[Rfam]
RNA sequence: AUAUUCUAACAUAAUACCACUUAUAUAAUAGUCGAAUAGGGCGACAAGUUUCUACCUAGCACCGUAAAUGCUGGACUAUAAGUGAAGAAUACAAGGAC
Numbered sequence: 001a002u003a004u005u006c007u008a009a010c011a012u013a014a015u016a017c018c019a020c021u022u023a024u025a026u027a028a029u030a031g032u033c034g035a036a037u038a039g040g041g042c043g044a045c046a047a048g049u050u051u052c053u054a055c056c057u058a059g060c061a062c063c064g065u066a067a068a069u070g071c072u073g074g075a076c077u078a079u080a081a082g083u084g085a086a087g088a089a090u091a092c093a094a095g096g097a098c
Stems, first nucleotide, its partner, number of pairs: 018084008029047001031045004056074006

Purine riboswitch aptamer: a 98-nucleotide RNA sequence from Isobaculum melis. Its Rfam clan is "Purine riboswitches". Riboswitches are metabolite binding domains within certain messenger RNAs that serve as precision sensors for their corresponding targets. Allosteric rearrangement of mRNA structure is mediated by ligand binding, and this results in modulation of gene expression. A class of riboswitches that selectively recognises guanine and becomes saturated at concentrations as low as 5 nM. In Bacillus subtilis, this mRNA motif is located on at least five separate transcriptional units that together encode 17 genes that are mostly involved in purine transport and purine nucleotide biosynthesis. It has also been shown that some members of this family are specific for adenine instead. The match comes from Rfam's covariance-model search (74 bits).